[Rfam]
RNA: TPP riboswitch aptamer (THI element)
RNA sequence: ACAUUCAGCGAGGGGUGCCGUGGCAAUUAUGGACCAGUUCCAUUUUUUGACCGGCUGAGAUUAUACCCUACGAACCUGAUCCGGGUCAUACCGGCGUAGGGACUGCUGUGUUGACGUUGU
Numbered sequence: 001a002c003a004u005u006c007a008g009c010g011a012g013g014g015g016u017g018c019c020g021u022g023g024c025a026a027u028u029a030u031g032g033a034c035c036a037g038u039u040c041c042a043u044u045u046u047u048u049g050a051c052c053g054g055c056u057g058a059g060a061u062u063a064u065a066c067c068c069u070a071c072g073a074a075c076c077u078g079a080u081c082c083g084g085g086u087c088a089u090a091c092c093g094g095c096g097u098a099g100g101g102a103c104u105g106c107u108g109u110g111u112u113g114a115c116g117u118u119g120u
Base pairs, nucleotide, nucleotide: 006108007107008106009105010104011069012068013067014066016063017055018054019053020052075100076099077098078097081094082093083092084091